[Rfam]
RNA sequence: AGAACAAGUGCUAUCCUAAAUAGCCGAUAUUUAUUUUGCUUUCCGAGUAGUGUCUCUCCCGAGACACUUUUUUUUGCCU
Numbered sequence: 001a002g003a004a005c006a007a008g009u010g011c012u013a014u015c016c017u018a019a020a021u022a023g024c025c026g027a028u029a030u031u032u033a034u035u036u037u038g039c040u041u042u043c044c045g046a047g048u049a050g051u052g053u054c055u056c057u058c059c060c061g062a063g064a065c066a067c068u069u070u071u072u073u074u075u076g077c078c079u
Stems, first nucleotide, its partner, number of pairs: 001074004006069003022040003026036002029034001051066006